This 75-nucleotide RNA sequence belongs to the Rfam family "RAGATH-18 RNA". Rfam describes the family as follows. Actinobacteria, Firmicutes, Fusobacteria, Thermotogae (1 example).
RNA sequence: CCUACGGAGAGUAUAUAACAAUGCAAGUACUGUUUGGAGGUAUCCAUCAGGAAAACAUACUCGAUGAAGUAGGAA
Numbered sequence: 001c002c003u004a005c006g007g008a009g010a011g012u013a014u015a016u017a018a019c020a021a022u023g024c025a026a027g028u029a030c031u032g033u034u035u036g037g038a039g040g041u042a043u044c045c046a047u048c049a050g051g052a053a054a055a056c057a058u059a060c061u062c063g064a065u066g067a068a069g070u071a072g073g074a075a
Stems, first nucleotide, its partner, number of pairs: 001073005009062005022057002030050003035046002

The family's consensus secondary structure is taken from published work.